[Rfam]
RNA sequence: GGACAUAACUCUGGAGAGACUCUUUAAGAGCACCGAAGGGGAAAGUUGAUAUCAAUGAAACUCUCAGGUAAAAGAACAGAGCUGUAAAG
Numbered sequence: 001g002g003a004c005a006u007a008a009c010u011c012u013g014g015a016g017a018g019a020c021u022c023u024u025u026a027a028g029a030g031c032a033c034c035g036a037a038g039g040g041g042a043a044a045g046u047u048g049a050u051a052u053c054a055a056u057g058a059a060a061c062u063c064u065c066a067g068g069u070a071a072a073a074g075a076a077c078a079g080a081g082c083u084g085u086a087a088a089g
Base pairs, nucleotide, nucleotide: 006084007083009081010080011079012078013077020030021029022028032069033068034067035065036064039063040062041061045056046055
Shown here is an 89-nucleotide RNA sequence from Sedimentibacter saalensis, a member of the family "Glycine riboswitch aptamer". NCBI's taxonomy places the organism under Bacteria, Bacillati, Bacillota, Tissierellia, Sedimentibacter.